[Rfam]
RNA sequence: UUCUUAUCUAGAGAAACUGAGGGACUGGCCCAAUGAAGUUUCAGCAACCAGUGUGUUUCAUUCGCAUGCAUGGUGCUAAGUCCAGCAGGUUUUCCUGAAAGAUAAGGC
Dot-bracket structure: .(((((((....(((((...(((.[[[[)))......)))))((((.((.((((((.......))))))..))))))...(]]]]((((....))))..)))))))).
A member of the RNA family "SAM riboswitch aptamer (S box leader)" from Clostridium acidisoli, 108 nucleotides long. It scores 82 bits against the family's covariance model. The source organism's lineage runs through Bacteria, Bacillati, Clostridiaceae, Clostridium and Clostridium acidisoli.